[Rfam]
RNA sequence: GAAUAGCACUUUUUGUUAUUUUCAACCAAUAACGCAAUGACACGUGAAAUAACUUUUCCAAGUGUCAUUGUGUUAUUGGUUGGAAAUAGUAAAACAGUAUUAUCC
Numbered sequence: 001g002a003a004u005a006g007c008a009c010u011u012u013u014u015g016u017u018a019u020u021u022u023c024a025a026c027c028a029a030u031a032a033c034g035c036a037a038u039g040a041c042a043c044g045u046g047a048a049a050u051a052a053c054u055u056u057u058c059c060a061a062g063u064g065u066c067a068u069u070g071u072g073u074u075a076u077u078g079g080u081u082g083g084a085a086a087u088a089g090u091a092a093a094a095c096a097g098u099a100u101u102a103u104c105c
Stems, first nucleotide, its partner, number of pairs: 003103003011094009021084023045060002048057002